[Rfam]
RNA: Small nucleolar RNA SNORA84
RNA sequence: GCCUGUGGAUGCUGGAGGCUUUGUUCAGGUAUAGCACUCCAGUGGGUACAAUGGGCCAUAACAAUCCCGUAAUUUAUGCAUGGCAUCUGUGUUUCCUCAGCAGCUACCACAGCCCAGUCACUGGUACAUGG
Numbered sequence: 001g002c003c004u005g006u007g008g009a010u011g012c013u014g015g016a017g018g019c020u021u022u023g024u025u026c027a028g029g030u031a032u033a034g035c036a037c038u039c040c041a042g043u044g045g046g047u048a049c050a051a052u053g054g055g056c057c058a059u060a061a062c063a064a065u066c067c068c069g070u071a072a073u074u075u076a077u078g079c080a081u082g083g084c085a086u087c088u089g090u091g092u093u094u095c096c097u098c099a100g101c102a103g104c105u106a107c108c109a110c111a112g113c114c115c116a117g118u119c120a121c122u123g124g125u126a127c128a129u130g131g
Base pairs, nucleotide, nucleotide: 002054003053006048007047010044011043012042013041014040015039016038018035019034020033021031067123069121070120072118073117074116078113079112081109082108083107085105087103088102089101090100